[Rfam]
RNA: Small nucleolar RNA snoR100
RNA sequence: UGAUGAAGGUAGCAUGGUAGGGUACACGGAAAUUGAAGUUUUGGGUCAGCAUGUCUGCUCCCUCUGAUACCCUCUCCUUGGAGGAUUUGAUUUGGGGGCCUGGUUUUAGACCCACAUUU
Numbered sequence: 001u002g003a004u005g006a007a008g009g010u011a012g013c014a015u016g017g018u019a020g021g022g023u024a025c026a027c028g029g030a031a032a033u034u035g036a037a038g039u040u041u042u043g044g045g046u047c048a049g050c051a052u053g054u055c056u057g058c059u060c061c062c063u064c065u066g067a068u069a070c071c072c073u074c075u076c077c078u079u080g081g082a083g084g085a086u087u088u089g090a091u092u093u094g095g096g097g098g099c100c101u102g103g104u105u106u107u108a109g110a111c112c113c114a115c116a117u118u119u
Stems, first nucleotide, its partner, number of pairs: 012025001014023002043101005053091003058084002